RNA sequence: UGUCGGCGGAAUAAAUUAUUCUGUGGCCACUUUGAGUUACAAUAAUUACUAUACUAGUCUAUGAGAUUAUGGUAACUCCUCAUAAAUGAUUUACUAUAGCAUUAUGGUAAAUAUCAUCUUGAAUUAUAGUAACCCAUCUAUCGUAAAUAUGUAUUGUUAUUAUCGUAAAUUAGUACAAACAUUAUCAUAAAUCAAGGUGGCCAUAGAAUAAGUUAUUCUGUAGCCA
Numbered sequence: 001u002g003u004c005g006g007c008g009g010a011a012u013a014a015a016u017u018a019u020u021c022u023g024u025g026g027c028c029a030c031u032u033u034g035a036g037u038u039a040c041a042a043u044a045a046u047u048a049c050u051a052u053a054c055u056a057g058u059c060u061a062u063g064a065g066a067u068u069a070u071g072g073u074a075a076c077u078c079c080u081c082a083u084a085a086a087u088g089a090u091u092u093a094c095u096a097u098a099g100c101a102u103u104a105u106g107g108u109a110a111a112u113a114u115c116a117u118c119u120u121g122a123a124u125u126a127u128a129g130u131a132a133c134c135c136a137u138c139u140a141u142c143g144u145a146a147a148u149a150u151g152u153a154u155u156g157u158u159a160u161u162a163u164c165g166u167a168a169a170u171u172a173g174u175a176c177a178a179a180c181a182u183u184a185u186c187a188u189a190a191a192u193c194a195a196g197g198u199g200g201c202c203a204u205a206g207a208a209u210a211a212g213u214u215a216u217u218c219u220g221u222a223g224c225c226a
Stems, first nucleotide, its partner, number of pairs: 001226002004223001006221009016211018037190003042185005050177001052175007060167003065164003069160003074154001080146001082144002086141003091136001092131008102121001107115001
RNA: MIR6217 microRNA precursor family